[Rfam]
RNA sequence: ACUGAGCUCAAUUGUGCUGGCUUGUAACCCGAGUGGGAGCAUUAAGGUGAUAAAACGCUGAGCUUGUCCAGUGGGCUGGGUUAAGGAAGUAUGUAAUGGCUAGCCCGGUCCAAGCUAGGAGUCGGUCAUGAUGUCUCUUCGAACGUCGAGAUGACGCUCACUGAUUUUGAGGGCACAGAGUCAGGCUGGUUUCACAGAGCAGCGAAUACUUUCUCCUCUUAGCAGCAGUGGAAGGAUAACUGGCCAUAUCUCCCUUAGCCCAAUAUGCCAAAUAGACAUACCCAAUUGGACCAUCAUUAUA
Numbered sequence: 001a002c003u004g005a006g007c008u009c010a011a012u013u014g015u016g017c018u019g020g021c022u023u024g025u026a027a028c029c030c031g032a033g034u035g036g037g038a039g040c041a042u043u044a045a046g047g048u049g050a051u052a053a054a055a056c057g058c059u060g061a062g063c064u065u066g067u068c069c070a071g072u073g074g075g076c077u078g079g080g081u082u083a084a085g086g087a088a089g090u091a092u093g094u095a096a097u098g099g100c101u102a103g104c105c106c107g108g109u110c111c112a113a114g115c116u117a118g119g120a121g122u123c124g125g126u127c128a129u130g131a132u133g134u135c136u137c138u139u140c141g142a143a144c145g146u147c148g149a150g151a152u153g154a155c156g157c158u159c160a161c162u163g164a165u166u167u168u169g170a171g172g173g174c175a176c177a178g179a180g181u182c183a184g185g186c187u188g189g190u191u192u193c194a195c196a197g198a199g200c201a202g203c204g205a206a207u208a209c210u211u212u213c214u215c216c217u218c219u220u221a222g223c224a225g226c227a228g229u230g231g232a233a234g235g236a237u238a239a240c241u242g243g244c245c246a247u248a249u250c251u252c253c254c255u256u257a258g259c260c261c262a263a264u265a266u267g268c269c270a271a272a273u274a275g276a277c278a279u280a281c282c283c284a285a286u287u288g289g290a291c292c293a294u295c296a297u298u299a300u301a
Stems, first nucleotide, its partner, number of pairs: 002039002004023005028037003043301002046298006056288002059284002062281001065278004070273001072271001074269003078261008088251002091249002096247008105235002109232004114223008123163004128158001129156002132153006140145001169212004180203002186197003